[Rfam]
RNA sequence: CUGCAUCUUUUUAAUCAAGGAAAUCACGGUUGAGUGUGAAGGAGAGAAAGUGGCUUCAGAUUUCCGGGUUUUCCUUCUCCACUGUGUUUCCUUGGUUAAAGAUAUGUGC
Number, nucleotide and partner (000 for none) at each position: 001c000002u000003g000004c106005a105006u104007c000008u000009u101010u100011u099012u098013a097014a096015u095016c094017a093018a092019g091020g090021a089022a088023a087024u000025c086026a085027c084028g083029g082030u081031u000032g079033a078034g077035u000036g000037u000038g000039a000040a000041g000042g000043a000044g000045a000046g000047a000048a000049a000050g000051u000052g000053g000054c000055u000056u000057c000058a000059g000060a000061u000062u000063u000064c000065c000066g000067g000068g000069u000070u000071u000072u000073c000074c000075u000076u000077c034078u033079c032080c000081a030082c029083u028084g027085u026086g025087u023088u022089u021090c020091c019092u018093u017094g016095g015096u014097u013098a012099a011100a010101g009102a000103u000104a006105u005106g004107u000108g000109c000
Notes
Rfam assigns this 109-nucleotide RNA sequence from Glycine max to the family "MIR1509 microRNA precursor family". Pairs were carried over by alignment from the consensus structure, which was predicted with RNAalifold. Lineage of the source: Eukaryota > Embryophyta > Mesangiospermae > Fabales > Glycine subgen. Soja. The family has 8 seed sequences and 42 matches in Rfam 15.1.